A member of the RNA family "Small nucleolar RNA SNORA17" from Oryzias latipes, 135 nucleotides long. Its Rfam clan is "SNORA17 clan". It scores 56 bits against the family's covariance model. From the family's description: snoRNA ACA 17 belongs to the H/ACA family of snoRNAs and is predicted to guide pseudouridylation of the 28S rRNA at positions U4659 and U4598. It shares the same host gene together with ACA43. For this family Rfam cites "Mapping to nucleotide resolution of pseudouridine residues in large subunit ribosomal RNAs from representative eukaryotes, prokaryotes, archaebacteria, mitochondria and chloroplasts" (Ofengand and Bakin, J Mol Biol, 1997). The family's RNA type in Rfam is H/ACA-box small nucleolar RNA. The base pairs follow the family's consensus structure, which was predicted with RNAalifold.
[Rfam]
RNA sequence: AAUGCCCCUCGAGGCGUUGCAGCCCAACUGUGAGUGUUGUGGCUGUGUCAUGAGGUGGCAGAGAGAAACUGGUGGUGGUCUACACCGAGACUCUACACCCACCGAGGGCUCGGAGUGAUUCUCUCCACCGACAGA
Numbered sequence: 001a002a003u004g005c006c007c008c009u010c011g012a013g014g015c016g017u018u019g020c021a022g023c024c025c026a027a028c029u030g031u032g033a034g035u036g037u038u039g040u041g042g043c044u045g046u047g048u049c050a051u052g053a054g055g056u057g058g059c060a061g062a063g064a065g066a067a068a069c070u071g072g073u074g075g076u077g078g079u080c081u082a083c084a085c086c087g088a089g090a091c092u093c094u095a096c097a098c099c100c101a102c103c104g105a106g107g108g109c110u111c112g113g114a115g116u117g118a119u120u121c122u123c124u125c126c127a128c129c130g131a132c133a134g135a
Base pairs, nucleotide, nucleotide: 003060004059005058006057007055008054009053010052011051013049014048015047019046020045021044022043023041025039026038027037028036070130071129072128073127074126075125077123083117084116086112087111088110089109091106092105093104